This 133-nucleotide sequence from Caenorhabditis brenneri belongs to the Rfam family "Caenorhabditis sRNA ceN93".
[Rfam]
RNA sequence: AUUCCAUUCAGUAGUCCCGGACGAAUUAGAAUUUAACGUACGGUUUGGACAUAAUGGAGAAAUAAAAUAUUGCUCUUUUUGCAGCGGAGCUGAACUUUAUGUUCUCUUUGCUAGCCAUAAGUGUAAAACAAUA
Numbered sequence: 001a002u003u004c005c006a007u008u009c010a011g012u013a014g015u016c017c018c019g020g021a022c023g024a025a026u027u028a029g030a031a032u033u034u035a036a037c038g039u040a041c042g043g044u045u046u047g048g049a050c051a052u053a054a055u056g057g058a059g060a061a062a063u064a065a066a067a068u069a070u071u072g073c074u075c076u077u078u079u080u081g082c083a084g085c086g087g088a089g090c091u092g093a094a095c096u097u098u099a100u101g102u103u104c105u106c107u108u109u110g111c112u113a114g115c116c117a118u119a120a121g122u123g124u125a126a127a128a129c130a131a132u133a
Stems, first nucleotide, its partner, number of pairs: 002059007011050002014046001017043003021039003026036003070126004075121003081115002083112007092104004
Rfam classes the family as a small RNA. It is one of the family's seed sequences.